[Rfam]
RNA sequence: CCUCAUUUGCAUCCUCGCGACUAAUGACAACCUUUAAUCCAGCCCCGUGGAUAAAGCCUCUCAUUAGCCGCGCGAACCUCUGCAACUGAAGAUCACGCUUAGCAACAAUACCUUAGUUUGUUCAGAAUUGCUGCCAGUUGCCUGAAAAAAGGGGCCAUAAAGGCCCCCUUUU
Numbered sequence: 001c002c003u004c005a006u007u008u009g010c011a012u013c014c015u016c017g018c019g020a021c022u023a024a025u026g027a028c029a030a031c032c033u034u035u036a037a038u039c040c041a042g043c044c045c046c047g048u049g050g051a052u053a054a055a056g057c058c059u060c061u062c063a064u065u066a067g068c069c070g071c072g073c074g075a076a077c078c079u080c081u082g083c084a085a086c087u088g089a090a091g092a093u094c095a096c097g098c099u100u101a102g103c104a105a106c107a108a109u110a111c112c113u114u115a116g117u118u119u120g121u122u123c124a125g126a127a128u129u130g131c132u133g134c135c136a137g138u139u140g141c142c143u144g145a146a147a148a149a150a151g152g153g154g155c156c157a158u159a160a161a162g163g164c165c166c167c168c169u170u171u172u
Stems, first nucleotide, its partner, number of pairs: 001091001003089003009083003016074004021067007098125001151167006

Rfam assigns this 172-nucleotide RNA from [Pantoea] beijingensis to the family "SraG RNA".
The family's RNA type in Rfam is small RNA.
NCBI's taxonomy places the organism under Bacteria, Pseudomonadota, Enterobacterales, Erwiniaceae, Erwinia.
The match comes from Rfam's covariance-model search (125 bits).
About the family: This RNA was discovered in E. coli during a large scale screen.